[Rfam]
RNA sequence: GAGUGCAGAGAUAAAAACACAACGUAAGGGAUAAUAUCUCUUAUAGAGCCGGUAGGUAGUCCGACCGCACCGCUUUGGUGUAAGUAGCCCUCCCUCCUUGGGUCGUCCAUUCUUUGUUCAGUACAA
Numbered sequence: 001g002a003g004u005g006c007a008g009a010g011a012u013a014a015a016a017a018c019a020c021a022a023c024g025u026a027a028g029g030g031a032u033a034a035u036a037u038c039u040c041u042u043a044u045a046g047a048g049c050c051g052g053u054a055g056g057u058a059g060u061c062c063g064a065c066c067g068c069a070c071c072g073c074u075u076u077g078g079u080g081u082a083a084g085u086a087g088c089c090c091u092c093c094c095u096c097c098u099u100g101g102g103u104c105g106u107c108c109a110u111u112c113u114u115u116g117u118u119c120a121g122u123a124c125a126a
Stems, first nucleotide, its partner, number of pairs: 005117007048065001050063003067081006092102003
This 126-nucleotide RNA from Frisingicoccus caecimuris belongs to the Rfam family "azaaromatic riboswitch aptamer (yjdF RNA)". The organism belongs to Frisingicoccus, within Bacteria.